[Rfam]
RNA sequence: GGCGAUAAACGUUCUUCGCAAUAAACCUAUCGGACCCGGGGGCGGUACCCGGCGCCUCCACCCAAGCCCAGCCGGCAUGAGGCGGGUUGGGCUUCGGCGGGGGCGAAAUAGGAUCGACGAGGGCGUAAAGGUUGGACUUUCGCUCGGCAUGGUUCCGCCGUUAUCGGGCCAAUGCAAUAGUUGCCAACGACAACUAUGCUCCGGUGGCGGUGGCCGCGUAA
Numbered sequence: 001g002g003c004g005a006u007a008a009a010c011g012u013u014c015u016u017c018g019c020a021a022u023a024a025a026c027c028u029a030u031c032g033g034a035c036c037c038g039g040g041g042g043c044g045g046u047a048c049c050c051g052g053c054g055c056c057u058c059c060a061c062c063c064a065a066g067c068c069c070a071g072c073c074g075g076c077a078u079g080a081g082g083c084g085g086g087u088u089g090g091g092c093u094u095c096g097g098c099g100g101g102g103g104c105g106a107a108a109u110a111g112g113a114u115c116g117a118c119g120a121g122g123g124c125g126u127a128a129a130g131g132u133u134g135g136a137c138u139u140u141c142g143c144u145c146g147g148c149a150u151g152g153u154u155c156c157g158c159c160g161u162u163a164u165c166g167g168g169c170c171a172a173u174g175c176a177a178u179a180g181u182u183g184c185c186a187a188c189g190a191c192a193a194c195u196a197u198g199c200u201c202c203g204g205u206g207g208c209g210g211u212g213g214c215c216g217c218g219u220a221a
Stems, first nucleotide, its partner, number of pairs: 001144005014134001017131001026123003030120003036052005053105007145160004
permuted transfer-messenger RNA: a 221-nucleotide RNA sequence from Methylobacterium nodulans. It is annotated as a non-coding RNA gene. Taxonomically the source falls in Methylobacterium nodulans (Bacteria, Pseudomonadati, Pseudomonadota, Alphaproteobacteria). It scores 149 bits against the family's covariance model. About the family: Bacterial tmRNA, also known as 10Sa RNA or SsrA, is named for its dual tRNA and mRNA-like properties.